[Rfam]
RNA sequence: UAAGGAGCAAUAAACUUUUUCUUGGUUUACCAAGAGGGGCUUUUGCUCCUUUAUUU
Numbered sequence: 001u002a003a004g005g006a007g008c009a010a011u012a013a014a015c016u017u018u019u020u021c022u023u024g025g026u027u028u029a030c031c032a033a034g035a036g037g038g039g040c041u042u043u044u045g046c047u048c049c050u051u052u053a054u055u056u
Base pairs, nucleotide, nucleotide: 002051003050004049005048006047007046008045009044010043012041019036020035021034022033023032024031

Rfam assigns this 56-nucleotide RNA to the family "Plastid-psbA-3 3UTR RNA". Rfam classes the family as a cis-regulatory element. Clan: Plastid-psbA 3UTR RNA clan. The sequence is in the family's curated seed alignment. From the family's description: Plastid psbA-3 is a non-coding RNA (ncRNA) present in plastids. It was identified in inverted repeat sequences in the 3 prime untranslate region (3UTR) of photosystem II quinone-binding protein (psbA).